A member of the RNA family "Plant signal recognition particle RNA" from Camellia sinensis, 307 nucleotides long. The family's consensus secondary structure is taken from published work. The match comes from Rfam's covariance-model search (229 bits).
RNA sequence: GCCGAGCUGAGUAACUGCAGCUUGUCACCCAAGUAGGGGCACUGGGGUGAUUGAACAUUAGUCCAGCCCAAGGAGUUGGUGCCGUGGUUGCUAAUUUCUGGCCCGCCCUAUCCAAGCAAUGAGUUGGGCUACAUGGCCUGAGCGAAAGUUUGGGAUGUGUAGUCCCUAGAGUGGAGGGCAAAGCGCCAGGCUGGCCUCACAGAGCAGCGAAAACGUCCCUCUCAUGGCAGUGGAAGGAUAACGGGCCAGUGCAUUCACGGCCCAAAUCAAAGCUCACAUGGCUGAAUUUAAUUGAACCAUCACCUUU
Numbered sequence: 001g002c003c004g005a006g007c008u009g010a011g012u013a014a015c016u017g018c019a020g021c022u023u024g025u026c027a028c029c030c031a032a033g034u035a036g037g038g039g040c041a042c043u044g045g046g047g048u049g050a051u052u053g054a055a056c057a058u059u060a061g062u063c064c065a066g067c068c069c070a071a072g073g074a075g076u077u078g079g080u081g082c083c084g085u086g087g088u089u090g091c092u093a094a095u096u097u098c099u100g101g102c103c104c105g106c107c108c109u110a111u112c113c114a115a116g117c118a119a120u121g122a123g124u125u126g127g128g129c130u131a132c133a134u135g136g137c138c139u140g141a142g143c144g145a146a147a148g149u150u151u152g153g154g155a156u157g158u159g160u161a162g163u164c165c166c167u168a169g170a171g172u173g174g175a176g177g178g179c180a181a182a183g184c185g186c187c188a189g190g191c192u193g194g195c196c197u198c199a200c201a202g203a204g205c206a207g208c209g210a211a212a213a214c215g216u217c218c219c220u221c222u223c224a225u226g227g228c229a230g231u232g233g234a235a236g237g238a239u240a241a242c243g244g245g246c247c248a249g250u251g252c253a254u255u256c257a258c259g260g261c262c263c264a265a266a267u268c269a270a271a272g273c274u275c276a277c278a279u280g281g282c283u284g285a286a287u288u289u290a291a292u293u294g295a296a297c298c299a300u301c302a303c304c305u306u307u
Stems, first nucleotide, its partner, number of pairs: 001040003004023006011016001028037002044306008053297001056294002058291003061287002064284003068281003072277001073275005079263001081261006089253002092251002098249008107237002111234004116228002119225005126165010137154007166171001173218003177214001184209003191202003